[Rfam]
RNA: Guanidine-I riboswitch aptamer
RNA sequence: UAUUAGGAUAGCUAGGGUUCCGGUUCCAGCAAUGGGAUGUCUGGUCCGAGAGCAGUCCGGCCUCGCUAGAGGUUCCACGGAGGGAUAAAAGCCCGGGAGAG
Numbered sequence: 001u002a003u004u005a006g007g008a009u010a011g012c013u014a015g016g017g018u019u020c021c022g023g024u025u026c027c028a029g030c031a032a033u034g035g036g037a038u039g040u041c042u043g044g045u046c047c048g049a050g051a052g053c054a055g056u057c058c059g060g061c062c063u064c065g066c067u068a069g070a071g072g073u074u075c076c077a078c079g080g081a082g083g084g085a086u087a088a089a090a091g092c093c094c095g096g097g098a099g100a101g
Stems, first nucleotide, its partner, number of pairs: 007057003011053002015047002020044002022041001023038006059074006076096001078099001082094003